This 74-nucleotide RNA sequence from Alligator sinensis belongs to the Rfam family "Mammalian CPEB3 ribozyme". The source organism's lineage runs through Eukaryota, Sauropsida, Crocodylia, Alligatorinae and Alligator. It scores 41 bits against the family's covariance model.
RNA sequence: GCAGGCAUACAGGCCAUAGCUGAAGCGCUCACAGCAUGGCCCUGUUAGAUGCCAAUGAAUCUGUGAAUUCUGCU
Numbered sequence: 001g002c003a004g005g006c007a008u009a010c011a012g013g014c015c016a017u018a019g020c021u022g023a024a025g026c027g028c029u030c031a032c033a034g035c036a037u038g039g040c041c042c043u044g045u046u047a048g049a050u051g052c053c054a055a056u057g058a059a060u061c062u063g064u065g066a067a068u069u070c071u072g073c074u
Stems, first nucleotide, its partner, number of pairs: 012041004018074003022070003025037001027035001046063005052057001